[Rfam]
RNA: Betaproteobacteria-1 RNA
RNA sequence: CGCUUGGCUGGUCGGGUUUGAUAACGACAGCGGCCAAGGGAUAACCCUGGACUGUGGGAUAGUCUUGAGAAUCAGGGCGGAGCGGCGAAGCUAGCACUCCGAAGACGAAAAGGCUGGCGGGC
Numbered sequence: 001c002g003c004u005u006g007g008c009u010g011g012u013c014g015g016g017u018u019u020g021a022u023a024a025c026g027a028c029a030g031c032g033g034c035c036a037a038g039g040g041a042u043a044a045c046c047c048u049g050g051a052c053u054g055u056g057g058g059a060u061a062g063u064c065u066u067g068a069g070a071a072u073c074a075g076g077g078c079g080g081a082g083c084g085g086c087g088a089a090g091c092u093a094g095c096a097c098u099c100c101g102a103a104g105a106c107g108a109a110a111a112g113g114c115u116g117g118c119g120g121g122c
Stems, first nucleotide, its partner, number of pairs: 001040001003038008027055004046076005063104001065102001078101005090118006